[Rfam]
RNA sequence: CGUCUCCUCUGAUUCUCCUCUUGAAUUGGAUUUCACGCCGGCCUGCACAGGUCGGCGUUUUUUUG
Numbered sequence: 001c002g003u004c005u006c007c008u009c010u011g012a013u014u015c016u017c018c019u020c021u022u023g024a025a026u027u028g029g030a031u032u033u034c035a036c037g038c039c040g041g042c043c044u045g046c047a048c049a050g051g052u053c054g055g056c057g058u059u060u061u062u063u064u065g
Stems, first nucleotide, its partner, number of pairs: 008030008035058008
Record summary:
Shown here is a 65-nucleotide RNA from Herbaspirillum sp. Sphag64, a member of the family "Betaproteobacteria toxic small RNA". It scores 55 bits against the family's covariance model. A reference for the family is Kimelman et al. (2012), "A vast collection of microbial genes that are toxic to bacteria", Genome Res. The organism belongs to Herbaspirillum, within Bacteria.